[Rfam]
RNA sequence: GUGAAAUGAUGAUGAAGUUUAUCCAUUCUCUGAGUGUGCUGCUCUACCCUUCCUGCUGCUCUCAGUUCCUGUUCUGGGAACUGGGUUAUGUGACCUCCAGAUGCCCUCCAGGCUUGCAGUGUUCUACUGUACCUGGCAGGGGUGUUUGGUGGCCAUACUGGUAGGAAGGGAUGGUGUCAGCAGAGGUGGAACCUUUUCUAUUUAAGGUUCCAUCUUGCCAAGACGAAUGACUGGUGUCUGAUCAC
Numbered sequence: 001g002u003g004a005a006a007u008g009a010u011g012a013u014g015a016a017g018u019u020u021a022u023c024c025a026u027u028c029u030c031u032g033a034g035u036g037u038g039c040u041g042c043u044c045u046a047c048c049c050u051u052c053c054u055g056c057u058g059c060u061c062u063c064a065g066u067u068c069c070u071g072u073u074c075u076g077g078g079a080a081c082u083g084g085g086u087u088a089u090g091u092g093a094c095c096u097c098c099a100g101a102u103g104c105c106c107u108c109c110a111g112g113c114u115u116g117c118a119g120u121g122u123u124c125u126a127c128u129g130u131a132c133c134u135g136g137c138a139g140g141g142g143u144g145u146u147u148g149g150u151g152g153c154c155a156u157a158c159u160g161g162u163a164g165g166a167a168g169g170g171a172u173g174g175u176g177u178c179a180g181c182a183g184a185g186g187u188g189g190a191a192c193c194u195u196u197u198c199u200a201u202u203u204a205a206g207g208u209u210c211c212a213u214c215u216u217g218c219c220a221a222g223a224c225g226a227a228u229g230a231c232u233g234g235u236g237u238c239u240g241a242u243c244a245c
Stems, first nucleotide, its partner, number of pairs: 010244004017237002020234001024229005030222002034218002038181004042176001044174003048170002050167005056160001058087001061085010090156003094152002103143002105140001109136001111134002115131007183216008192207004

Shown here is a 245-nucleotide sequence from Sarcophilus harrisii, a member of the family "Small nucleolar RNA SNORD17". Rfam describes the family as follows. The snoRNA HBI-43 belongs to the C/D family of snoRNAs, guiding 2'O-ribose methylation at position U3797 of the 28S rRNA. Pseudouridylation in position U3797 is predicted to be guided by the H/ACA snoRNA ACA48. The organism belongs to Sarcophilus, within Eukaryota. Rfam links the family to the GO terms nucleolus and RNA processing. It scores 160 bits against the family's covariance model.